The record is a 76-nucleotide sequence, which matches "Small nucleolar RNA SNORD115" in Rfam. Gene Ontology terms of the family: nucleolus and RNA processing.

RNA sequence: GGGUCAAUGAUGAGAUGUUACCUUGAAGAGAAAUGAUGACGUAAAAAUUAAGUUCAGUUGGAUUACGCUGAGGCCC
Numbered sequence: 001g002g003g004u005c006a007a008u009g010a011u012g013a014g015a016u017g018u019u020a021c022c023u024u025g026a027a028g029a030g031a032a033a034u035g036a037u038g039a040c041g042u043a044a045a046a047a048u049u050a051a052g053u054u055c056a057g058u059u060g061g062a063u064u065a066c067g068c069u070g071a072g073g074c075c076c
Base pairs, nucleotide, nucleotide: 001076002075003074004073005070006069008067009066
The family's consensus secondary structure was predicted with PFOLD. Rfam 15.1 lists 3,387 matches to the family in 131 species.